[Rfam]
A member of the RNA family "Enterobacterial sRNA STnc480" from Escherichia coli, 67 nucleotides long. The sequence is in the family's curated seed alignment. Pairs were carried over by alignment from the consensus structure, which was predicted with WAR.
RNA sequence: UUACAAAAAAAGCCACGGUAUAAACCGUGGCAAAAUCCAACAUAGCUAAAAAUAAUCAGGCGAGUGG
Numbered sequence: 001u002u003a004c005a006a007a008a009a010a011a012g013c014c015a016c017g018g019u020a021u022a023a024a025c026c027g028u029g030g031c032a033a034a035a036u037c038c039a040a041c042a043u044a045g046c047u048a049a050a051a052a053u054a055a056u057c058a059g060g061c062g063a064g065u066g067g
Base pairs, nucleotide, nucleotide: 012031013030014029015028016027017026018025019024